[Rfam]
RNA sequence: CCAAGUGAUGCUGUAGCAGCACAGAAUGGUUUGUGGUUAUGCUGAGAUGCAGGCCGUACUGUGCUGCAGCAGUAAUGCUUAG
Number, nucleotide and partner (000 for none) at each position: 001c082002c000003a080004a079005g078006u077007g000008a000009u000010g000011c000012u000013g070014u069015a000016g067017c066018a065019g064020c063021a062022c061023a060024g059025a000026a057027u056028g055029g054030u053031u052032u051033g050034u049035g048036g000037u000038u000039a000040u000041g000042c000043u000044g000045a000046g000047a000048u035049g034050c033051a032052g031053g030054c029055c028056g027057u026058a000059c024060u023061g022062u021063g020064c019065u018066g017067c016068a000069g014070c013071a000072g000073u000074a000075a000076u000077g006078c005079u004080u003081a000082g001
About this RNA:
The family of this 82-nucleotide RNA sequence from Clupea harengus is "mir-15 microRNA precursor family". The family has 164 seed sequences and 2,045 matches in Rfam 15.1. The base pairs follow the family's consensus structure, which was predicted with RNAalifold. Gene Ontology terms of the family: RISC complex and miRNA-mediated post-transcriptional gene silencing. This family represents the related mir-15a and mir-15b sequences. In humans miR-15a and miR-16 are clustered within 0.5 kb at 13q14. This region has been shown to be deleted in more than half of B cell chronic lymphocytic leukaemias (CLL). NCBI's taxonomy places the organism under Eukaryota, Vertebrata, Teleostomi, Clupeocephala, Clupea.